[Rfam]
RNA sequence: ACUAUCCUUUUCCUGGGGUAGUGCUACUGUCCAAUGAAUGAGUAGUGAGAGCAACACUGCUAAUGCCUACACAACACGCUCGCAUCAACUAGAGCUUUUCUUUACUUUGGUGCAAUUUCUGGAAAA
Numbered sequence: 001a002c003u004a005u006c007c008u009u010u011u012c013c014u015g016g017g018g019u020a021g022u023g024c025u026a027c028u029g030u031c032c033a034a035u036g037a038a039u040g041a042g043u044a045g046u047g048a049g050a051g052c053a054a055c056a057c058u059g060c061u062a063a064u065g066c067c068u069a070c071a072c073a074a075c076a077c078g079c080u081c082g083c084a085u086c087a088a089c090u091a092g093a094g095c096u097u098u099u100c101u102u103u104a105c106u107u108u109g110g111u112g113c114a115a116u117u118u119c120u121g122g123a124a125a126a
Stems, first nucleotide, its partner, number of pairs: 006018004021060003028053003032049001038046002082113006090104005